[Rfam]
RNA sequence: AUCCCCCAUGAUGUCAGGUCCGCCGCAUCUCCUGGGUCGUGGGGUGGCUGGCCGGCCCGCCGGGCCGAUGGAUCCUCGUUCCAUCCUCCGCGAGCCGGCCAGCCCUCGA
Numbered sequence: 001a002u003c004c005c006c007c008a009u010g011a012u013g014u015c016a017g018g019u020c021c022g023c024c025g026c027a028u029c030u031c032c033u034g035g036g037u038c039g040u041g042g043g044g045u046g047g048c049u050g051g052c053c054g055g056c057c058c059g060c061c062g063g064g065c066c067g068a069u070g071g072a073u074c075c076u077c078g079u080u081c082c083a084u085c086c087u088c089c090g091c092g093a094g095c096c097g098g099c100c101a102g103c104c105c106u107c108g109a
Stems, first nucleotide, its partner, number of pairs: 004044007014035005046104011
Overview:
The family of this 109-nucleotide RNA sequence from Hoeflea marina is "EcpR1". Rfam links the family to the GO terms negative regulation of cell cycle, regulation of translation in response to stress and mRNA binding. The literature on the family includes a 2012 paper in RNA Biol by Wilms et al., "Deep sequencing uncovers numerous small RNAs on all four replicons of the plant pathogen Agrobacterium tumefaciens". It is annotated as a small RNA. About the family: Perviously named SmelC291, SmrC10, or Sra33. A search with the family's covariance model found it, with a score of 72 bits. The organism belongs to Hoeflea, within Bacteria.